[Rfam]
U7 small nuclear RNA: a 60-nucleotide RNA from Propithecus coquereli.
Nucleotides: 060
Stems, first nucleotide, its partner, number of pairs: 036060005042051003
Number, partner (000 for none) and nucleotide at each position: 001000c002000c003000a004000u005000a006000u007000u008000u009000u010000a011000g012000c013000u014000c015000u016000u017000u018000u019000a020000g021000a022000a023000u024000u025000u026000g027000u028000c029000u030000a031000u032000c033000a034000g035000g036060u037059u038058u039057u040056c041000c042051g043050g044049u045000c046000c047000u048000u049044a050043c051042u052000g053000g054000a055000a056040g057039a058038a059037a060036a
The literature on the family includes a 1994 paper in Nucleic Acids Res by Spycher et al., "3' end processing of mouse histone pre-mRNA: evidence for additional base-pairing between U7 snRNA and pre-mRNA". The match comes from Rfam's covariance-model search (38 bits).